L25-Gammaproteobacteria ribosomal protein leader: a 33-nucleotide sequence from Amphiprion percula.
RNA sequence: CCUGCUGCUGGGUCUGGUUCCACCUGCAGCAGG
Numbered sequence: 001c002c003u004g005c006u007g008c009u010g011g012g013u014c015u016g017g018u019u020c021c022a023c024c025u026g027c028a029g030c031a032g033g
Stems, first nucleotide, its partner, number of pairs: 001033008010024002
Record summary:
A reference for the family is Eckert and Weinberg (2020), "Discovery of 20 novel ribosomal leader candidates in bacteria and archaea", BMC Microbiol.